[Rfam]
MIR7486 microRNA precursor family: an 85-nucleotide RNA sequence from Gossypium australe.
RNA sequence: CCUGGGGGAGCGUUUUGUCCACGUCAGCAUAAAGCGCUUCCUUGAAUGAGCGCUUUGCUGACGUGGACAAAACGCUCCCCCAGGG
Numbered sequence: 001c002c003u004g005g006g007g008g009a010g011c012g013u014u015u016u017g018u019c020c021a022c023g024u025c026a027g028c029a030u031a032a033a034g035c036g037c038u039u040c041c042u043u044g045a046a047u048g049a050g051c052g053c054u055u056u057g058c059u060g061a062c063g064u065g066g067a068c069a070a071a072a073c074g075c076u077c078c079c080c081c082a083g084g085g
Base pairs, nucleotide, nucleotide: 001084002083003082004081005080006079007078008077009076010075011074012073013072014071015070016069017068018067019066020065021064023062024061025060026059027058028057031056032055033054034053035052036051037050038049

Gene Ontology terms of the family: RISC complex and miRNA-mediated post-transcriptional gene silencing. The match comes from Rfam's covariance-model search (78 bits). The organism belongs to Gossypium, within Eukaryota.